Mammalian CPEB3 ribozyme: a 76-nucleotide RNA from Crocodylus porosus.

RNA sequence: UCACAAGUUCUGAGGCUAUAGCAGAAGUACUCACAGUGUGGCCUGUCAGAUUCCAACAAAAUCUGCAAAUUCUGCU
Numbered sequence: 001u002c003a004c005a006a007g008u009u010c011u012g013a014g015g016c017u018a019u020a021g022c023a024g025a026a027g028u029a030c031u032c033a034c035a036g037u038g039u040g041g042c043c044u045g046u047c048a049g050a051u052u053c054c055a056a057c058a059a060a061a062u063c064u065g066c067a068a069a070u071u072c073u074g075c076u
Stems, first nucleotide, its partner, number of pairs: 014043004020076007027039003047065006
The mammalian CPEB3 ribozyme is a self cleaving RNA located in the second intron of the CPEB3 gene which belongs to a family of genes regulating messenger RNA polyadenylation.